Rfam assigns this 85-nucleotide RNA from Ananas comosus to the family "Small nucleolar RNA SNORD25". Pairs were carried over by alignment from the consensus structure, which was predicted with PFOLD.

RNA sequence: GGCAACUUUGAUGACUCUACAGACCUGUAAUGAUUUUUGCAGACAUGAUUGCAUAAUCAAAGAACAUCUAAGGGACUGAGUUGUC
Numbered sequence: 001g002g003c004a005a006c007u008u009u010g011a012u013g014a015c016u017c018u019a020c021a022g023a024c025c026u027g028u029a030a031u032g033a034u035u036u037u038u039g040c041a042g043a044c045a046u047g048a049u050u051g052c053a054u055a056a057u058c059a060a061a062g063a064a065c066a067u068c069u070a071a072g073g074g075a076c077u078g079a080g081u082u083g084u085c
Stems, first nucleotide, its partner, number of pairs: 002084005